[Rfam]
RNA sequence: CUUGAUAAAGGCAAACCCGUCGAAAGACGGGGACGCAAAGCCACGGGCCUAAAGCAUUGCUAUGGCAGCCGGGUCGCCGGGG
Numbered sequence: 001c002u003u004g005a006u007a008a009a010g011g012c013a014a015a016c017c018c019g020u021c022g023a024a025a026g027a028c029g030g031g032g033a034c035g036c037a038a039a040g041c042c043a044c045g046g047g048c049c050u051a052a053a054g055c056a057u058u059g060c061u062a063u064g065g066c067a068g069c070c071g072g073g074u075c076g077c078c079g080g081g082g
Base pairs, nucleotide, nucleotide: 001082003079004078011036012035016031017030018029019028020027021026034068040074041073042072044071045070046069047066048065049064

This 82-nucleotide RNA sequence from Dethiobacter alkaliphilus belongs to the Rfam family "c-di-GMP-I-GGC riboswitch aptamer". Pairs were carried over by alignment from the consensus structure, which is taken from published work. The match comes from Rfam's covariance-model search (78 bits).